The family of this 46-nucleotide sequence from Culex quinquefasciatus is "Histone 3' UTR stem-loop". The base pairs follow the family's consensus structure, which is taken from published work. Rfam's curators write: The mRNAs of metazoan histone genes lack a poly-A tail. 3' end processing occurs at a site between a highly conserved stem-loop (modelled by this family) and a purine rich region around 20 nts downstream (the histone downstream element, or HDE). The stem-loop is bound by a 31 kDa stem-loop binding protein (SLBP - also termed the histone hairpin binding protein, or HBP). NCBI's taxonomy places the organism under Eukaryota, Allotriocarida, Culicidae, Culicini, Culex pipiens complex. Rfam links the family to the GO term mRNA 3'-end processing by stem-loop binding and cleavage. The family's RNA type in Rfam is cis-regulatory element.

RNA sequence: UAAACGGCCCUUUUCAGGGCCACUACAAUUUUCACGAAAGAGUUAU
Numbered sequence: 001u002a003a004a005c006g007g008c009c010c011u012u013u014u015c016a017g018g019g020c021c022a023c024u025a026c027a028a029u030u031u032u033c034a035c036g037a038a039a040g041a042g043u044u045a046u
Stems, first nucleotide, its partner, number of pairs: 006021006